[Rfam]
Background: This 161-nucleotide sequence from Roseateles aquatilis belongs to the Rfam family "radC RNA". It scores 92 bits against the family's covariance model. The family's RNA type in Rfam is cis-regulatory element. The source organism's lineage runs through Bacteria, Pseudomonadati, Pseudomonadota, Burkholderiales and Roseateles.

RNA sequence: ACUCUGAACCCAUGUUCCGCUGACUUGAGGUCAGCAACAUGCCCAGGUAGCCAUCGACCUCCAAGGCUACGGUGCGGUUCGCCGCACAGGUCGUUGUUCAUCCCCGGCGCAUCCCGCGCCAUUUACCUCAACCCACCAGGGGCUCCCAACCCCGGUGGCGG
Numbered sequence: 001a002c003u004c005u006g007a008a009c010c011c012a013u014g015u016u017c018c019g020c021u022g023a024c025u026u027g028a029g030g031u032c033a034g035c036a037a038c039a040u041g042c043c044c045a046g047g048u049a050g051c052c053a054u055c056g057a058c059c060u061c062c063a064a065g066g067c068u069a070c071g072g073u074g075c076g077g078u079u080c081g082c083c084g085c086a087c088a089g090g091u092c093g094u095u096g097u098u099c100a101u102c103c104c105c106g107g108c109g110c111a112u113c114c115c116g117c118g119c120c121a122u123u124u125a126c127c128u129c130a131a132c133c134c135a136c137c138a139g140g141g142g143c144u145c146c147c148a149a150c151c152c153c154g155g156u157g158g159c160g161g
Stems, first nucleotide, its partner, number of pairs: 011041004016036001019035006047070006056092004072087006129161001135156003139152003